[Rfam]
RNA: HDV ribozyme from F. prausnitzii
Organism: Rodentolepis nana
RNA sequence: GGGGUGUGAGACAGACUUACCUCAACGUGGUACACCCCAGGCAACGUAUAUUUAUGCGGCAAAAAAGUUUAU
Numbered sequence: 001g002g003g004g005u006g007u008g009a010g011a012c013a014g015a016c017u018u019a020c021c022u023c024a025a026c027g028u029g030g031u032a033c034a035c036c037c038c039a040g041g042c043a044a045c046g047u048a049u050a051u052u053u054a055u056g057c058g059g060c061a062a063a064a065a066a067g068u069u070u071a072u
Stems, first nucleotide, its partner, number of pairs: 001038007019031003045058005